The record is an 85-nucleotide sequence from Trichechus manatus, which matches "Small nucleolar RNA SNORD24" in Rfam. Rfam links the family to the GO terms RNA processing and nucleolus. Taxonomically the source falls in Trichechus manatus (Eukaryota, Eumetazoa, Amniota, Sirenia). A search with the family's covariance model found it, with a score of 42 bits.

[Rfam]
RNA sequence: UGCCACUGUGAUGACAUUUUAUUUGCUACUCUUGACCAUGAGAGUGAUGAGAGUUAUUACCACCAAUGUGCAAUAAACUGAGGCA
Numbered sequence: 001u002g003c004c005a006c007u008g009u010g011a012u013g014a015c016a017u018u019u020u021a022u023u024u025g026c027u028a029c030u031c032u033u034g035a036c037c038a039u040g041a042g043a044g045u046g047a048u049g050a051g052a053g054u055u056a057u058u059a060c061c062a063c064c065a066a067u068g069u070g071c072a073a074u075a076a077a078c079u080g081a082g083g084c085a
Stems, first nucleotide, its partner, number of pairs: 001085004